RNA sequence: UUGGUGACAAGAAAACCGAAGAGCCAACGCACUGGUGCUUGUCACCAAAAUCAGCUUUGGGAAGGUCUGAGGUAAAAUCUUCUUUCCUCGAAAGGGGGAGGGCUUUAAUCGCCCGUGAAUGAACAGAAAGUGCUCUUUUUACCGGGUUUGCCCAAGAAGUGUGUCGUAUAGACACACUGAGGUUGUACGGUAGAAGGAGUUGAGAAUGUUCACGAUUGGCAGUCUUUAGUGAGAUGGUUUUGCGAACUCAAUUCAGACUACUCUGUGACCAA
Numbered sequence: 001u002u003g004g005u006g007a008c009a010a011g012a013a014a015a016c017c018g019a020a021g022a023g024c025c026a027a028c029g030c031a032c033u034g035g036u037g038c039u040u041g042u043c044a045c046c047a048a049a050a051u052c053a054g055c056u057u058u059g060g061g062a063a064g065g066u067c068u069g070a071g072g073u074a075a076a077a078u079c080u081u082c083u084u085u086c087c088u089c090g091a092a093a094g095g096g097g098g099a100g101g102g103c104u105u106u107a108a109u110c111g112c113c114c115g116u117g118a119a120u121g122a123a124c125a126g127a128a129a130g131u132g133c134u135c136u137u138u139u140u141a142c143c144g145g146g147u148u149u150g151c152c153c154a155a156g157a158a159g160u161g162u163g164u165c166g167u168a169u170a171g172a173c174a175c176a177c178u179g180a181g182g183u184u185g186u187a188c189g190g191u192a193g194a195a196g197g198a199g200u201u202g203a204g205a206a207u208g209u210u211c212a213c214g215a216u217u218g219g220c221a222g223u224c225u226u227u228a229g230u231g232a233g234a235u236g237g238u239u240u241u242g243c244g245a246a247c248u249c250a251a252u253u254c255a256g257a258c259u260a261c262u263c264u265g266u267g268a269c270c271a272a
Stems, first nucleotide, its partner, number of pairs: 001272004007266003013241003017237001020058005033047005067256005076217004085099005100114004115213007133199003
Notes:
Nuclear RNase P: a 272-nucleotide sequence from Soboliphyme baturini. Ribonuclease P (RNase P) is a ubiquitous endoribonuclease, found in archaea, bacteria and eukarya as well as chloroplasts and mitochondria. Its best characterised activity is the generation of mature 5'-ends of tRNAs by cleaving the 5'-leader elements of precursor-tRNAs. Cellular RNase Ps are ribonucleoproteins. RNA from bacterial RNase Ps retains its catalytic activity in the absence of the protein subunit, i.e. it is a ribozyme. Isolated eukaryotic and archaeal RNase P RNA has not been shown to retain its catalytic function, but is still essential for the catalytic activity of the holoenzyme. Although the archaeal and eukaryotic holoenzyme s have a much greater protein content than the bacterial ones, the RNA cores from all the three lineages are homologous -- helices corresponding to P1, P2, P3, P4, and P10/11 are common to all cellular RNase P RNAs. Yet, there is considerable sequence variation, particularly among the eukaryotic RNAs. Clan: RNaseP clan.